[Rfam]
RNA sequence: UUGUUCCUUUUUCCUAUGCUUAUACUUCUUUGAGAAUUGAAUCUAAAGAAGCAUAGAGCAUGGGAAAAUGGGGCUA
Numbered sequence: 001u002u003g004u005u006c007c008u009u010u011u012u013c014c015u016a017u018g019c020u021u022a023u024a025c026u027u028c029u030u031u032g033a034g035a036a037u038u039g040a041a042u043c044u045a046a047a048g049a050a051g052c053a054u055a056g057a058g059c060a061u062g063g064g065a066a067a068a069u070g071g072g073g074c075u076a
Stems, first nucleotide, its partner, number of pairs: 010067010021055003025051008